A member of the RNA family "Lysine riboswitch aptamer" from Ruminococcus sp. CAG:330, 174 nucleotides long.
RNA sequence: GGAAUAGGUAGAGGCGCACUCACGAAGAGUAUGUUCUGACAGGAUACCAGUCCGCAAGAAAUGCAGAGCAAAAAGGCGUGCGUGCCGAAGAGGCUGUACCGGUGACACAGCUUCUGGGCAUAUUUCCGAAGAGGGGUAUGACUGUCAUCGUUAUGAUGGAGUGCUAUCGGCGAU
Numbered sequence: 001g002g003a004a005u006a007g008g009u010a011g012a013g014g015c016g017c018a019c020u021c022a023c024g025a026a027g028a029g030u031a032u033g034u035u036c037u038g039a040c041a042g043g044a045u046a047c048c049a050g051u052c053c054g055c056a057a058g059a060a061a062u063g064c065a066g067a068g069c070a071a072a073a074a075g076g077c078g079u080g081c082g083u084g085c086c087g088a089a090g091a092g093g094c095u096g097u098a099c100c101g102g103u104g105a106c107a108c109a110g111c112u113u114c115u116g117g118g119c120a121u122a123u124u125u126c127c128g129a130a131g132a133g134g135g136g137u138a139u140g141a142c143u144g145u146c147a148u149c150g151u152u153a154u155g156a157u158g159g160a161g162u163g164c165u166a167u168c169g170g171c172g173a174u
Stems, first nucleotide, its partner, number of pairs: 007168005016085004021080004032070007089115009100104001116143002119140008145159006
NCBI's taxonomy places the organism under Bacteria, Bacillati, Bacillota, Oscillospiraceae, Ruminococcus. The family has 47 seed sequences and 3,224 matches in Rfam 15.1. From the family's description: Riboswitches are metabolite binding domains within certain messenger RNAs that serve as precision sensors for their corresponding targets. The match comes from Rfam's covariance-model search (100 bits).